[Rfam]
RNA sequence: AGCUACAAAAACAACUCUACUCAUAUAUCCCUUGAAUACGGCAAGGAGCAUCUACGGUCAGCCUUAAAUUGACCACUAUGGGUAAUUUUAGUAUGAAC
Numbered sequence: 001a002g003c004u005a006c007a008a009a010a011a012c013a014a015c016u017c018u019a020c021u022c023a024u025a026u027a028u029c030c031c032u033u034g035a036a037u038a039c040g041g042c043a044a045g046g047a048g049c050a051u052c053u054a055c056g057g058u059c060a061g062c063c064u065u066a067a068a069u070u071g072a073c074c075a076c077u078a079u080g081g082g083u084a085a086u087u088u089u090a091g092u093a094u095g096a097a098c
Stems, first nucleotide, its partner, number of pairs: 018084008030046005056074006
This 98-nucleotide sequence from Clostridium estertheticum belongs to the Rfam family "Purine riboswitch aptamer".
From the family's description: Riboswitches are metabolite binding domains within certain messenger RNAs that serve as precision sensors for their corresponding targets.
The source organism's lineage runs through Bacteria, Bacillota, Clostridia, Clostridiaceae and Clostridium.